[Rfam]
RNA sequence: CCCAGCGGUAGUCAGCUACCCACUGCUGUUCAGUGCCUGCGAUAGUGUUAUGCUGCUGGAAGAGAAACGGUGCUGCCACAUUGCUCCUGGCACUACAGGUGCUGUCCUAGUGCUCAGUGGUACCAGGAUUUGGCAGCACUCUGCAUGCCUGAGAGUGGAGCAACUCCUGCUUGGUGGAGUUAAUCCUAGUCUGGAUGCAGACAGU
Numbered sequence: 001c002c003c004a005g006c007g008g009u010a011g012u013c014a015g016c017u018a019c020c021c022a023c024u025g026c027u028g029u030u031c032a033g034u035g036c037c038u039g040c041g042a043u044a045g046u047g048u049u050a051u052g053c054u055g056c057u058g059g060a061a062g063a064g065a066a067a068c069g070g071u072g073c074u075g076c077c078a079c080a081u082u083g084c085u086c087c088u089g090g091c092a093c094u095a096c097a098g099g100u101g102c103u104g105u106c107c108u109a110g111u112g113c114u115c116a117g118u119g120g121u122a123c124c125a126g127g128a129u130u131u132g133g134c135a136g137c138a139c140u141c142u143g144c145a146u147g148c149c150u151g152a153g154a155g156u157g158g159a160g161c162a163a164c165u166c167c168u169g170c171u172u173g174g175u176g177g178a179g180u181u182a183a184u185c186c187u188a189g190u191c192u193g194g195a196u197g198c199a200g201a202c203a204g205u
Stems, first nucleotide, its partner, number of pairs: 002059008011051002015046004020041001021039002025036002070139009085128006092121003096117001098113001100112004141200006148193001157186003162181006

Description
The family of this 205-nucleotide sequence from Upupa epops is "Small nucleolar RNA SNORA74". A reference for the family is Bortolin and Kiss (1998), "Human U19 intron-encoded snoRNA is processed from a long primary transcript that possesses little potential for protein coding", RNA. The family has 24 seed sequences and 1,348 matches in Rfam 15.1. About the family: U19 belongs to the H/ACA class of snoRNAs. snoRNAs bind a number of proteins (including dyskerin, Gar1p and Nop10p in the case of the H/ACA class) to form snoRNP complexes. This class are thought to guide the sites of modification of uridines to pseudouridines by forming direct base pairing interactions with substrate RNAs. Targets may include ribosomal and spliceosomal RNAs but the exact functions of many snoRNAs, including U19, are not confirmed. Taxonomically the source falls in Upupa (Eukaryota, Metazoa, Euteleostomi, Sauria).